Cyano-1 RNA: a 72-nucleotide RNA sequence from Cyanobium sp. PCC 7001.
The family's consensus secondary structure is taken from published work.
RNA sequence: UGGGGUGUGAGGAGUGCGGAACGUCUCUUCAGGGUCGAAACGAGGACAGACUCCCGAAGAUCGUUCCAACGU
Number, nucleotide and partner (000 for none) at each position: 001u000002g000003g000004g000005g000006u000007g000008u000009g000010a000011g000012g000013a000014g000015u068016g000017c000018g067019g066020a065021a064022c063023g000024u000025c000026u060027c059028u000029u000030c000031a000032g054033g053034g051035u050036c049037g000038a000039a000040a000041c000042g000043a000044g000045g000046a000047c000048a000049g036050a035051c034052u000053c033054c032055c000056g000057a000058a000059g027060a026061u000062c000063g022064u021065u020066c019067c018068a015069a000070c000071g000072u000
Rfam classes the family as a small RNA. Rfam 15.1 lists 283 matches to the family in 194 species.